This 46-nucleotide sequence from Macrostomum lignano belongs to the Rfam family "Histone 3' UTR stem-loop". The match comes from Rfam's covariance-model search (36 bits). The family's consensus secondary structure is taken from published work. It is annotated as a cis-regulatory element. Lineage of the source: Eukaryota > Metazoa > Bilateria > Macrostomorpha > Macrostomum.
RNA sequence: AAAAUGGCCCUUUUCAGGGCCACCAAAUAUUUUGAUAGUCUUAUUU
Numbered sequence: 001a002a003a004a005u006g007g008c009c010c011u012u013u014u015c016a017g018g019g020c021c022a023c024c025a026a027a028u029a030u031u032u033u034g035a036u037a038g039u040c041u042u043a044u045u046u
Stems, first nucleotide, its partner, number of pairs: 006021006